pan motif: a 100-nucleotide sequence from Aneurinibacillus sp. XH2. By type it is a cis-regulatory element. It scores 49 bits against the family's covariance model. The base pairs follow the family's consensus structure, which is taken from published work.

[Rfam]
RNA sequence: AGGGCCGUAUCCACGCGGAAUGGCACCAGGAUGUGUUUUGUUGUUGUCAGUGAAAAAAUAUUUGAAUCUGCUCUGAGCCGAUGAGGACCGAGACAGAGGA
Numbered sequence: 001a002g003g004g005c006c007g008u009a010u011c012c013a014c015g016c017g018g019a020a021u022g023g024c025a026c027c028a029g030g031a032u033g034u035g036u037u038u039u040g041u042u043g044u045u046g047u048c049a050g051u052g053a054a055a056a057a058a059u060a061u062u063u064g065a066a067u068c069u070g071c072u073c074u075g076a077g078c079c080g081a082u083g084a085g086g087a088c089c090g091a092g093a094c095a096g097a098g099g100a
Stems, first nucleotide, its partner, number of pairs: 002027002004024005010019002068096003071092003075088001078086002